[Rfam]
RNA sequence: CAGUAACUCCGAAUCCCGUGGGGGAUAGGAGUAACGGCUGUCUGGCACAGCCUUUGGUACGCCUGUUUGACACAUCCACGGGCCGAGUGGCCCGCCGAGAACGGGUCGUAUCGUAGACCAGCAAAUAUCCCAACGCUCGGGAAGCCGCGCCGUGAACGGCGCGGA
Numbered sequence: 001c002a003g004u005a006a007c008u009c010c011g012a013a014u015c016c017c018g019u020g021g022g023g024g025a026u027a028g029g030a031g032u033a034a035c036g037g038c039u040g041u042c043u044g045g046c047a048c049a050g051c052c053u054u055u056g057g058u059a060c061g062c063c064u065g066u067u068u069g070a071c072a073c074a075u076c077c078a079c080g081g082g083c084c085g086a087g088u089g090g091c092c093c094g095c096c097g098a099g100a101a102c103g104g105g106u107c108g109u110a111u112c113g114u115a116g117a118c119c120a121g122c123a124a125a126u127a128u129c130c131c132a133a134c135g136c137u138c139g140g141g142a143a144g145c146c147g148c149g150c151c152g153u154g155a156a157c158g159g160c161g162c163g164g165a
Stems, first nucleotide, its partner, number of pairs: 003035002007031004013026003016022002036052005055113006062105007080093005128142004133137001145164008
Dot-bracket structure: ..((..((((..(((((...)).))).))))..))(((((.......)))))..((((((.(((((((...........(((((....))))).....)))))))..))))))..............((((.(...).))))..((((((((....)))))))).
RNA: Sense overlapping transcript RNA 0042 (sot)
Organism: halophilic archaeon